[Rfam]
RNA sequence: AUUGAAAAUAAAAUAUGUAUCCGUAUAAUCCUGAUAAUUGGUUCGGGAGUUUCUACAGAAAGCCGUAAACUUUCUCACUAUGGGUAAAUUUAUAAUAUAA
Numbered sequence: 001a002u003u004g005a006a007a008a009u010a011a012a013a014u015a016u017g018u019a020u021c022c023g024u025a026u027a028a029u030c031c032u033g034a035u036a037a038u039u040g041g042u043u044c045g046g047g048a049g050u051u052u053c054u055a056c057a058g059a060a061a062g063c064c065g066u067a068a069a070c071u072u073u074c075u076c077a078c079u080a081u082g083g084g085u086a087a088a089u090u091u092a093u094a095a096u097a098u099a100a
Stems, first nucleotide, its partner, number of pairs: 018086008029048006057075006